This 101-nucleotide part of an RNA from Klebsormidium nitens belongs to the Rfam family "Archaeal small subunit ribosomal RNA". The base pairs follow the family's consensus structure, which is taken from published work. Clan: SSU clan. The source organism's lineage runs through Eukaryota, Streptophyta, Klebsormidiophyceae, Klebsormidiaceae and Klebsormidium. Rfam 15.1 lists 709 matches to the family in 491 species.
RNA sequence: AAUGGCAAGCACAGAGGGAAGCAAUGCCGCAAGGCGGAGCGAAUCCUUAAAUCUUGUCCCAGUCCGGAUUGCUCGCUGCAACUCGCGAGCAUGAAGUUGGA
Numbered sequence: 001a002a003u004g005g006c007a008a009g010c011a012c013a014g015a016g017g018g019a020a021g022c023a024a025u026g027c028c029g030c031a032a033g034g035c036g037g038a039g040c041g042a043a044u045c046c047u048u049a050a051a052u053c054u055u056g057u058c059c060c061a062g063u064c065c066g067g068a069u070u071g072c073u074c075g076c077u078g079c080a081a082c083u084c085g086c087g088a089g090c091a092u093g094a095a096g097u098u099g100g101a
Base pairs, nucleotide, nucleotide: 004058005057006056007055008054009053016047017046018045021040022039025036026035027034028033065096070091071090072089073088074087075086076085